Overview: Rfam assigns this 226-nucleotide part of an RNA from Aspergillus bombycis to the family "Eukaryotic large subunit ribosomal RNA". It scores 3331 bits against the family's covariance model.
RNA sequence: CGCUUGCGACCAGACUCGCCCCCGGGGUUCAGCCGGCAUUCGUGCCGGUGUACUUCCCCGAGGGCGGGCCAGCGUCGGUUUGGGCGGCCGGUCAAAGGCCCCUGGAAUGUAGUACCCUCCGGGGUACCUUAUAGCCAGGGGUGCAAUGCGGCCAGCCUGGACCGAGGAACGCGCUUCGGCACGGACGCUGGCAUAAUGGUCGUAAACGACCCGUCUUGAAACACGG
Numbered sequence: 001c002g003c004u005u006g007c008g009a010c011c012a013g014a015c016u017c018g019c020c021c022c023c024g025g026g027g028u029u030c031a032g033c034c035g036g037c038a039u040u041c042g043u044g045c046c047g048g049u050g051u052a053c054u055u056c057c058c059c060g061a062g063g064g065c066g067g068g069c070c071a072g073c074g075u076c077g078g079u080u081u082g083g084g085c086g087g088c089c090g091g092u093c094a095a096a097g098g099c100c101c102c103u104g105g106a107a108u109g110u111a112g113u114a115c116c117c118u119c120c121g122g123g124g125u126a127c128c129u130u131a132u133a134g135c136c137a138g139g140g141g142u143g144c145a146a147u148g149c150g151g152c153c154a155g156c157c158u159g160g161a162c163c164g165a166g167g168a169a170c171g172c173g174c175u176u177c178g179g180c181a182c183g184g185a186c187g188c189u190g191g192c193a194u195a196a197u198g199g200u201c202g203u204a205a206a207c208g209a210c211c212c213g214u215c216u217u218g219a220a221a222c223a224c225g226g
Stems, first nucleotide, its partner, number of pairs: 001208002004205009017066005023060002070190007211226004